Overview
tRNA: a 73-nucleotide RNA sequence from Umbelopsis vinacea. Pairs were carried over by alignment from the consensus structure, which is taken from published work.
[Rfam]
RNA sequence: AAUCUGGUAACUCAAUUGGUAGAGUGAUAUGUUGAUAACGUAUAAGUCGGUGGUUCGAGCCCACCCCAGAUUA
Dot-bracket structure: (((((((..((((........)))).(((((.......))))).....(((((.......)))))))))))).
Numbered sequence: 001a002a003u004c005u006g007g008u009a010a011c012u013c014a015a016u017u018g019g020u021a022g023a024g025u026g027a028u029a030u031g032u033u034g035a036u037a038a039c040g041u042a043u044a045a046g047u048c049g050g051u052g053g054u055u056c057g058a059g060c061c062c063a064c065c066c067c068a069g070a071u072u073a
Stems, first nucleotide, its partner, number of pairs: 001072007010025004027043005049065005
The source organism's lineage runs through Eukaryota, Opisthokonta, Mucoromycotina, Umbelopsidaceae and Umbelopsis. Transfer RNA (tRNA) molecules are approximately 80 nucleotides in length. Their secondary structure includes four short double-helical elements and three loops (D, anti-codon, and T loops). Further hydrogen bonds mediate the characteristic L-shaped molecular structure. tRNAs have two regions of fundamental functional importance: the anti-codon, which is responsible for specific mRNA codon recognition, and the 3' end, to which the tRNAs corresponding amino acid is attached (by aminoacyl-tRNA synthetases). tRNAs cope with the degeneracy of the genetic code in two manners: having more than one tRNA (with a specific anti-codon) for a particular amino acid; and 'wobble' base-pairing, i.e. permitting non-standard base-pairing at the 3rd anti-codon position.